Rfam assigns this 136-nucleotide RNA from Veronia nyctiphanis to the family "Molybdenum/Tungsten riboswitch aptamer (Moco RNA motif)".
RNA sequence: UUCGCGACAAAAGCCGAAGCCUCUGCUGCUAAGUCUACAAAAGAUAUGCAUCUUUGGCCGUGACCUUAAGUCACCAGGGCGGGCACAGAAAUGUUCUCGUCUCCCGAAUUUGGAAAGGUGUUUCGUUGCUAUGCAU
Numbered sequence: 001u002u003c004g005c006g007a008c009a010a011a012a013g014c015c016g017a018a019g020c021c022u023c024u025g026c027u028g029c030u031a032a033g034u035c036u037a038c039a040a041a042a043g044a045u046a047u048g049c050a051u052c053u054u055u056g057g058c059c060g061u062g063a064c065c066u067u068a069a070g071u072c073a074c075c076a077g078g079g080c081g082g083g084c085a086c087a088g089a090a091a092u093g094u095u096c097u098c099g100u101c102u103c104c105c106g107a108a109u110u111u112g113g114a115a116a117g118g119u120g121u122u123u124c125g126u127u128g129c130u131a132u133g134c135a136u
Base pairs, nucleotide, nucleotide: 004129006127011122012121013119014118015117019058020057021056025052027050028049029048033045034044035043036042060074061073062072063071064070077102078101079100080099081098082097083096085094086093087092103113104112

Pairs were carried over by alignment from the consensus structure, which is taken from published work.